[Rfam]
RNA sequence: UGCAACACCAAUCAAAGGAGUAGUUCCCCAUCCAUGAGCUUCUUUACUAUAUUAUGGAUUC
Numbered sequence: 001u002g003c004a005a006c007a008c009c010a011a012u013c014a015a016a017g018g019a020g021u022a023g024u025u026c027c028c029c030a031u032c033c034a035u036g037a038g039c040u041u042c043u044u045u046a047c048u049a050u051a052u053u054a055u056g057g058a059u060u061c
Base pairs, nucleotide, nucleotide: 017045018044019043020042022040023039024038025037026036

This 61-nucleotide sequence from Punica granatum belongs to the Rfam family "Plastid-psbN 5UTR RNA". For this family Rfam cites "Retrograde signaling in plants: A critical review focusing on the GUN pathway and beyond" (Richter et al., Plant Commun, 2023). The base pairs follow the family's consensus structure, which was predicted with LocARNA. The source organism's lineage runs through Eukaryota, Viridiplantae, Gunneridae, Myrtales and Punica. From the family's description: Plastid psbN is a non-coding RNA (ncRNA) recognised in plastids. It was reported as a conserved 11 stem-loop in the prime untranslated region (5UTR) of psbN genes. It has been reported that the motif is retained in a subset of mature transcripts in barley, which can suggests a possible role in transcript alternative 5 prime processing.